[Rfam]
RNA: mir-33 microRNA precursor family
Organism: Bombyx mori
RNA sequence: CGAGAGUGCAUUGUAGUUGCAUUGCACCGGUUCCAUUAACGUGCAAUAUGACUACAAGGCAAAUCCCG
Numbered sequence: 001c002g003a004g005a006g007u008g009c010a011u012u013g014u015a016g017u018u019g020c021a022u023u024g025c026a027c028c029g030g031u032u033c034c035a036u037u038a039a040c041g042u043g044c045a046a047u048a049u050g051a052c053u054a055c056a057a058g059g060c061a062a063a064u065c066c067c068g
Stems, first nucleotide, its partner, number of pairs: 001068002004065001006064001007061003011057006019049001021047007
Dot-bracket structure: ((.(.((((.((((((..(.(((((((.............))))))).)..)))))).)))..)).))